Overview
Rfam assigns this 107-nucleotide sequence from Prevotella sp. P3-122 to the family "SAM-I/IV (S-adenosyl methionine) riboswitch aptamer". The base pairs follow the family's consensus structure, which is taken from published work. Its family is annotated with regulation of gene expression and S-adenosylmethionine metabolic process in the Gene Ontology. Taxonomically the source falls in Prevotella (Bacteria, Pseudomonadati, Bacteroidota, Prevotellaceae).

Nucleotides: 107
Stems, first nucleotide, its partner, number of pairs: 006077005015032001017031005034063002038060003041056003049102001079091004
Number, partner (000 for none) and nucleotide at each position: 001000u002000a003000g004000c005000a006077u007076c008075a009074u010073c011000a012000a013000g014000a015032g016000u017031u018030c019029c020028u021027g022000u023000a024000a025000g026000a027021c028020g029019g030018g031017a032015u033000g034063c035062c036000a037000a038060c039059c040058g041056a042055g043054c044000a045000a046000a047000u048000g049102c050000c051000a052000a053000u054043g055042c056041u057000a058040c059039g060038g061000u062035g063034g064000a065000c066000a067000a068000g069000u070000u071000a072000u073010g074009a075008u076007g077006a078000g079091a080090a081089u082088g083000u084000u085000u086000a087000a088082c089081a090080u091079u092000a093000a094000a095000a096000a097000u098000u099000u100000u101000a102049g103000a104000a105000u106000u107000a